[Rfam]
RNA: speF leader
RNA sequence: UUCCGGCUUUCCACCAGCCGGGGUCACUGAAGAGGCACACCAUCAUUGCCGGAAGUGCGGUCGGGUUUCCCACCAAUCCAUGGCAGACAAAGCCGAAUUGAUGCCCUAGGCGGGGUGUCGGUUCAUCAUUUGCGCGUCGAGCGUAUGCGAAGGUU
Numbered sequence: 001u002u003c004c005g006g007c008u009u010u011c012c013a014c015c016a017g018c019c020g021g022g023g024u025c026a027c028u029g030a031a032g033a034g035g036c037a038c039a040c041c042a043u044c045a046u047u048g049c050c051g052g053a054a055g056u057g058c059g060g061u062c063g064g065g066u067u068u069c070c071c072a073c074c075a076a077u078c079c080a081u082g083g084c085a086g087a088c089a090a091a092g093c094c095g096a097a098u099u100g101a102u103g104c105c106c107u108a109g110g111c112g113g114g115g116u117g118u119c120g121g122u123u124c125a126u127c128a129u130u131u132g133c134g135c136g137u138c139g140a141g142c143g144u145a146u147g148c149g150a151a152g153g154u155u
Stems, first nucleotide, its partner, number of pairs: 001023008034050004057135003082094002102117005